[Rfam]
RNA sequence: GAAACGCGUUGACUGUUUUUCCUCCUCCCAAACAGUCAACGACAUAGAUGCAGUGACCUCCUCCUCCUAAUCACUGCAUUUCAGAUCAAGCCCGCCAACCUCCUCCCUGGCGGGCUUUUUCU
Numbered sequence: 001g002a003a004a005c006g007c008g009u010u011g012a013c014u015g016u017u018u019u020u021c022c023u024c025c026u027c028c029c030a031a032a033c034a035g036u037c038a039a040c041g042a043c044a045u046a047g048a049u050g051c052a053g054u055g056a057c058c059u060c061c062u063c064c065u066c067c068u069a070a071u072c073a074c075u076g077c078a079u080u081u082c083a084g085a086u087c088a089a090g091c092c093c094g095c096c097a098a099c100c101u102c103c104u105c106c107c108u109g110g111c112g113g114g115c116u117u118u119u120u121c122u
Stems, first nucleotide, its partner, number of pairs: 007041003011037007048079009088117010
Rfam assigns this 122-nucleotide RNA sequence from Nitratireductor aestuarii to the family "Alphaproteobacterial ar14".
The pairing is the family consensus, mapped onto this sequence.
It scores 85 bits against the family's covariance model.
On this family, see del Val et al., RNA Biol 2012: "A survey of sRNA families in alpha-proteobacteria".
Smr14C2 was renamed NfeR1 (Nodule Formation Efficiency RNA) highly expressed in salt stress and during the symbiotic interaction on legume roots.
The family's RNA type in Rfam is small RNA.